[Rfam]
Rfam assigns this 130-nucleotide RNA sequence from Escherichia coli to the family "EFASI RNA". Pairs were carried over by alignment from the consensus structure, which is taken from published work. Lineage of the source: Bacteria > Pseudomonadota > Enterobacterales > Escherichia coli > Escherichia coli O32:H37. By type it is a small RNA. Rfam's curators put it in the seed alignment.

RNA sequence: AAAGAUCGAUACCGAGGGGGGGCUAGAAGCCCCGGAGAUACCCCUGCUUCGUCAGGCAGUCUGUACCGCGUACAGCCUGAAACUCCCUAAACCUCAACAACCAGCCACUCCGGCGUGAAGGUAUCGUUCU
Numbered sequence: 001a002a003a004g005a006u007c008g009a010u011a012c013c014g015a016g017g018g019g020g021g022g023c024u025a026g027a028a029g030c031c032c033c034g035g036a037g038a039u040a041c042c043c044c045u046g047c048u049u050c051g052u053c054a055g056g057c058a059g060u061c062u063g064u065a066c067c068g069c070g071u072a073c074a075g076c077c078u079g080a081a082a083c084u085c086c087c088u089a090a091a092c093c094u095c096a097a098c099a100a101c102c103a104g105c106c107a108c109u110c111c112g113g114c115g116u117g118a119a120g121g122u123a124u125c126g127u128u129c130u
Stems, first nucleotide, its partner, number of pairs: 002130001004128002007126007019033005034086004043056004057079003062074005